[Rfam]
RNA sequence: CGGCACUGUUUCCACUACGGAUCGUCGGGCACGUACCUGCCCGUGGAAAGGAUUGUU
Numbered sequence: 001c002g003g004c005a006c007u008g009u010u011u012c013c014a015c016u017a018c019g020g021a022u023c024g025u026c027g028g029g030c031a032c033g034u035a036c037c038u039g040c041c042c043g044u045g046g047a048a049a050g051g052a053u054u055g056u057u
Stems, first nucleotide, its partner, number of pairs: 009049006026043006
Rfam assigns this 57-nucleotide sequence from Micropruina glycogenica to the family "msiK RNA". A search with the family's covariance model found it, with a score of 59 bits.